The record is a 79-nucleotide RNA sequence from Laticauda laticaudata, which matches "Small nucleolar RNA SNORD45" in Rfam.
RNA sequence: GGUCAGUGAUGGAAUGAGGUUUAUCUGAAUCUGCAGUUGAUAUGGUUUACACUCAGCUCUAGAAUUACUCUGAGACCUG
Numbered sequence: 001g002g003u004c005a006g007u008g009a010u011g012g013a014a015u016g017a018g019g020u021u022u023a024u025c026u027g028a029a030u031c032u033g034c035a036g037u038u039g040a041u042a043u044g045g046u047u048u049a050c051a052c053u054c055a056g057c058u059c060u061a062g063a064a065u066u067a068c069u070c071u072g073a074g075a076c077c078u079g
Base pairs, nucleotide, nucleotide: 001077002076003075004074
The organism belongs to Laticauda, within Eukaryota. A search with the family's covariance model found it, with a score of 56 bits.